Shown here is a 246-nucleotide sequence, a member of the family "ARRPOF RNA". The family's RNA type in Rfam is small RNA.

[Rfam]
RNA sequence: CUAAACCCUACAAGAAUAUUUUCAAAAAAUUUCAUCAUACAAUUUGUGAUGAGCUGAUAGGCACUAAUCAGUCCAAGCUUUUAAAGGUUGGUAGGAAUUGUUGCAACGUGAGGACAACGGAACAAAGGUCAGGUGGUUUAUUGUUUUGGGGUGUCUUUUAUACCUUUAUAAAACUGAAUGUAGGCAGUUAAGGUCGAACACGUGGGCAAUAAAGCGUGGAUUGUAUCAAACAAGUAAAAGGCAAGU
Numbered sequence: 001c002u003a004a005a006c007c008c009u010a011c012a013a014g015a016a017u018a019u020u021u022u023c024a025a026a027a028a029a030u031u032u033c034a035u036c037a038u039a040c041a042a043u044u045u046g047u048g049a050u051g052a053g054c055u056g057a058u059a060g061g062c063a064c065u066a067a068u069c070a071g072u073c074c075a076a077g078c079u080u081u082u083a084a085a086g087g088u089u090g091g092u093a094g095g096a097a098u099u100g101u102u103g104c105a106a107c108g109u110g111a112g113g114a115c116a117a118c119g120g121a122a123c124a125a126a127g128g129u130c131a132g133g134u135g136g137u138u139u140a141u142u143g144u145u146u147u148g149g150g151g152u153g154u155c156u157u158u159u160a161u162a163c164c165u166u167u168a169u170a171a172a173a174c175u176g177a178a179u180g181u182a183g184g185c186a187g188u189u190a191a192g193g194u195c196g197a198a199c200a201c202g203u204g205g206g207c208a209a210u211a212a213a214g215c216g217u218g219g220a221u222u223g224u225a226u227c228a229a230a231c232a233a234g235u236a237a238a239a240g241g242c243a244a245g246u
Base pairs, nucleotide, nucleotide: 007184008183009182010181011180012179032052033051034050035049036048037047038046039045054071055070056069057068058067073091074090075089077088078087079086080085107119108118109117113130114129115128138212139211140210141209142208143207152243153242154241155240156239157238158237159236160235162194163193164192165191166190172189173188174187175186176185199218200217201216202215203214221233222232223231224230
Rfam's curators put it in the seed alignment.